[Rfam]
RNA sequence: UUGACUGUCCAUGACGUUAAAACACUAAACCCCUGGGAUGUGUUUUAGUUGAUUUUAGUCUC
Number, nucleotide and partner (000 for none) at each position: 001u000002u000003g060004a059005c058006u000007g000008u000009c000010c000011a000012u000013g000014a000015c000016g049017u048018u047019a046020a045021a044022a043023c042024a041025c040026u000027a000028a000029a000030c037031c036032c000033c000034u000035g000036g031037g030038a000039u000040g025041u024042g023043u022044u021045u020046u019047a018048g017049u016050u000051g000052a000053u000054u000055u000056u000057a000058g005059u004060c003061u000062c000